[Rfam]
RNA sequence: GGAUACUUGAGAAGAGUUGACCUUAGUACGAGAGGACCGGGUUGAACGUACCUCUGGUGUUCCAGUUGUUCCGCCAGGAGCAGUCGCUGGGUAGCUAUGUACGGAAAGGAUAACCGCUGAAAGCAUCUAAGCGGGAAGCCUCCUUCAAGAUUAGGUAUCCCUGGGAGCAAUCCCCUAAAGGCCCGUUGUAGACCACAACGUUGAUAGGCCGGGUGUGUAAGUGCAGUAAUGCAUUCAGCUUACCGGUACUAAUCGGCCGUGAG
Number, nucleotide and partner (000 for none) at each position: 001g160002g159003a158004u157005a156006c155007u154008u153009g000010a000011g146012a145013a144014g143015a000016g000017u045018u044019g043020a042021c041022c040023u039024u000025a000026g000027u000028a000029c000030g000031a000032g000033a000034g000035g000036a000037c000038c000039g023040g022041g021042u020043u019044g018045a017046a000047c103048g102049u101050a100051c099052c000053u000054c000055u097056g096057g095058u000059g000060u000061u000062c090063c089064a088065g087066u086067u082068g081069u080070u079071c078072c077073g000074c000075c000076a000077g072078g071079a070080g069081c068082a067083g000084u000085c000086g066087c065088u064089g063090g062091g000092u000093a000094g000095c057096u056097a055098u000099g051100u050101a049102c048103g047104g000105a000106a000107a141108g140109g139110a000111u000112a000113a000114c134115c133116g132117c131118u130119g000120a000121a000122a000123g000124c000125a000126u000127c000128u000129a000130a118131g117132c116133g115134g114135g000136a000137a000138g000139c109140c108141u107142c000143c014144u013145u012146c011147a000148a000149g000150a000151u000152u000153a008154g007155g006156u005157a004158u003159c002160c001161c000162u000163g175164g174165g173166a000167g000168c000169a000170a000171u000172c000173c165174c164175c163176u000177a260178a000179a000180g258181g257182c256183c255184c200185g199186u198187u197188g196189u000190a000191g000192a000193c000194c000195a000196c188197a187198a186199c185200g184201u000202u000203g000204a000205u251206a250207g249208g247209c246210c245211g244212g243213g241214u000215g239216u000217g000218u000219a000220a000221g234222u233223g232224c231225a230226g000227u000228a000229a000230u225231g224232c223233a222234u221235u000236c000237a000238g000239c215240u000241u213242a000243c212244c211245g210246g209247u208248a000249c207250u206251a205252a000253u000254c000255g183256g182257c181258c180259g000260u177261g000262a000263g000
RNA: Bacterial large subunit ribosomal RNA, nucleotides 2686 to 2948